[Rfam]
A member of the RNA family "Small nucleolar RNA SNORD66" from Cairina moschata, 79 nucleotides long. It scores 59 bits against the family's covariance model. A reference for the family is Huttenhofer et al. (2001), "RNomics: an experimental approach that identifies 201 candidates for novel, small, non-messenger RNAs in mouse", EMBO J. By type it is a C/D-box small nucleolar RNA. From the family's description: snoRNA HBII-142 is part of the C/D family of snoRNAs. It is the human orthologue of the mouse MBII-142 snoRNA and is predicted to guide 2'O-ribose methylation of small 18S rRNA at residue C1272.

RNA sequence: UCUUCGUGAUGAGCUCUGCUUUGUGCCGUCGUGUCUGGGCCACUGAUGCUCCGUGAUGGUGUUGAGCGUCUGACGGGGA
Numbered sequence: 001u002c003u004u005c006g007u008g009a010u011g012a013g014c015u016c017u018g019c020u021u022u023g024u025g026c027c028g029u030c031g032u033g034u035c036u037g038g039g040c041c042a043c044u045g046a047u048g049c050u051c052c053g054u055g056a057u058g059g060u061g062u063u064g065a066g067c068g069u070c071u072g073a074c075g076g077g078g079a
Stems, first nucleotide, its partner, number of pairs: 001079004